[Rfam]
RNA sequence: CCAGACCGCUAGGGGAGUAGUUGCUACUGAGAGUUCCGCCGACCAUCGCGGAACGACCCUUUGAACCUGAUCCGGGUCAUUCCGGCGUAGGGAAGCGGCGCGUUGCCAGG
Numbered sequence: 001c002c003a004g005a006c007c008g009c010u011a012g013g014g015g016a017g018u019a020g021u022u023g024c025u026a027c028u029g030a031g032a033g034u035u036c037c038g039c040c041g042a043c044c045a046u047c048g049c050g051g052a053a054c055g056a057c058c059c060u061u062u063g064a065a066c067c068u069g070a071u072c073c074g075g076g077u078c079a080u081u082c083c084g085g086c087g088u089a090g091g092g093a094a095g096c097g098g099c100g101c102g103u104u105g106c107c108a109g110g
Stems, first nucleotide, its partner, number of pairs: 006098005011060004017027004034053005066091004072085004
RNA: TPP riboswitch aptamer (THI element)